[Rfam]
RNA sequence: CCGAUUGUCAUUGGGGAGUAGCCAUCCUCACCCCCUCGCGACCGAUCAUCGGUUGCGACUUCAGAGGAAUCCGCGUCAACAGACUUGAAGCUUCGGCUUCAUGGCGUGGAUGGUGGCGGUGCCGUCAGGCACCCGCAGCCCGGCGAGACCUUUGGCCACGACGCGCUCACCC
Numbered sequence: 001c002c003g004a005u006u007g008u009c010a011u012u013g014g015g016g017a018g019u020a021g022c023c024a025u026c027c028u029c030a031c032c033c034c035c036u037c038g039c040g041a042c043c044g045a046u047c048a049u050c051g052g053u054u055g056c057g058a059c060u061u062c063a064g065a066g067g068a069a070u071c072c073g074c075g076u077c078a079a080c081a082g083a084c085u086u087g088a089a090g091c092u093u094c095g096g097c098u099u100c101a102u103g104g105c106g107u108g109g110a111u112g113g114u115g116g117c118g119g120u121g122c123c124g125u126c127a128g129g130c131a132c133c134c135g136c137a138g139c140c141c142g143g144c145g146a147g148a149c150c151u152u153u154g155g156c157c158a159c160g161a162c163g164c165g166c167u168c169a170c171c172c
Stems, first nucleotide, its partner, number of pairs: 026067003069111010086101005
Notes: Shown here is a 172-nucleotide RNA sequence from Dyella sp. AD56, a member of the family "Manganese Mn2+ riboswitch aptamer (yybP-ykoY)". Rfam describes the family as follows. This RNA was originally discovered in E. coli during a large scale screen and was named SraF. The family was later found to exist upstream of related families of protein genes in many bacteria, including the the yybP and ykoK genes in B. subtilis. The specific functions of these proteins are unknown, but this structured RNA element may be involved in their genetic regulation as a riboswitch. The base pairs follow the family's consensus structure. The match comes from Rfam's covariance-model search (62 bits).